[Rfam]
RNA sequence: UUUUAAAUAUAAUUAUGUACCAUGAAAUAUUUGGGAAAUACUUAUACUAAAA
Number, nucleotide and partner (000 for none) at each position: 001u000002u000003u000004u000005a000006a048007a000008u046009a045010u044011a043012a042013u000014u040015a039016u038017g000018u036019a000020c034021c033022a031023u000024g000025a000026a000027a000028u000029a000030u000031u022032u000033g021034g020035g000036a018037a000038a016039u015040a014041c000042u012043u011044a010045u009046a008047c000048u006049a000050a000051a000052a000